[Rfam]
The record is a 96-nucleotide RNA sequence from Cryoendolithus antarcticus, which matches "tRNA" in Rfam.
RNA sequence: GGACAGAUGGCCGAGCGGUUAAGGCGCUAGCUUAAGGCACCCCCUGGGUCUGUACGCUAGUUCGAAAGAGCGUGGGUUCGAUUCCCACUCUGUUCA
Numbered sequence: 001g002g003a004c005a006g007a008u009g010g011c012c013g014a015g016c017g018g019u020u021a022a023g024g025c026g027c028u029a030g031c032u033u034a035a036g037g038c039a040c041c042c043c044c045u046g047g048g049u050c051u052g053u054a055c056g057c058u059a060g061u062u063c064g065a066a067a068g069a070g071c072g073u074g075g076g077u078u079c080g081a082u083u084c085c086c087a088c089u090c091u092g093u094u095c096a
Stems, first nucleotide, its partner, number of pairs: 001095007010025003027060005072088005

Source information:
It scores 50 bits against the family's covariance model. About the family: Transfer RNA (tRNA) molecules are approximately 80 nucleotides in length.